Source information:
Shown here is a 131-nucleotide sequence from Lactiplantibacillus kimchii, a member of the family "Enterococcus sRNA 68 (Lacto-3 RNA)". The literature on the family includes a 2015 paper in RNA by Innocenti et al., "Whole-genome mapping of 5' RNA ends in bacteria by tagged sequencing: a comprehensive view in Enterococcus faecalis". It scores 85 bits against the family's covariance model.
RNA sequence: UGCGAUGAGUCGAUAAAGUCAGAUUUCCAGCAAUGGAAGUUCCGCGCGAGCGGCUAGUGACUAAUUAUUGAUAGCGGGGCACGUUUUUCCGACGUAUUCGGAGUGCUUGGGUCACUGACGUUGUGGAGCGG
Numbered sequence: 001u002g003c004g005a006u007g008a009g010u011c012g013a014u015a016a017a018g019u020c021a022g023a024u025u026u027c028c029a030g031c032a033a034u035g036g037a038a039g040u041u042c043c044g045c046g047c048g049a050g051c052g053g054c055u056a057g058u059g060a061c062u063a064a065u066u067a068u069u070g071a072u073a074g075c076g077g078g079g080c081a082c083g084u085u086u087u088u089c090c091g092a093c094g095u096a097u098u099c100g101g102a103g104u105g106c107u108u109g110g111g112u113c114a115c116u117g118a119c120g121u122u123g124u125g126g127a128g129c130g131g
Stems, first nucleotide, its partner, number of pairs: 017062005022041008042053004078107005088102005119130004